About this RNA
The family of this 103-nucleotide RNA from Aquibacillus koreensis is "SAM riboswitch aptamer (S box leader)". The family's consensus secondary structure is taken from published work. Rfam's curators write: The SAM riboswitch is found upstream of a number of genes which code for proteins involved in methionine or cysteine biosynthesis in Gram-positive bacteria.

[Rfam]
RNA sequence: AGAUUAUCCUGAAUGACCGAGAGAACUGGCUUUUUGACGUCAUAGCAACCUGCAUAUGUAAGAUGCUUCUACCAGUAAAGCCUAAGGCUUUGGAUGAUAUAAC
Numbered sequence: 001a002g003a004u005u006a007u008c009c010u011g012a013a014u015g016a017c018c019g020a021g022a023g024a025a026c027u028g029g030c031u032u033u034u035u036g037a038c039g040u041c042a043u044a045g046c047a048a049c050c051u052g053c054a055u056a057u058g059u060a061a062g063a064u065g066c067u068u069c070u071a072c073c074a075g076u077a078a079a080g081c082c083u084a085a086g087g088c089u090u091u092g093g094a095u096g097a098u099a100u101a102a103c
Base pairs, nucleotide, nucleotide: 002103004101005099006098007097008096013043014042015041016040017039021032022031023030026075027074028073029072044067045066046065047064050062051060052059053058071095076092077091078090079089080088081087
The match comes from Rfam's covariance-model search (50 bits).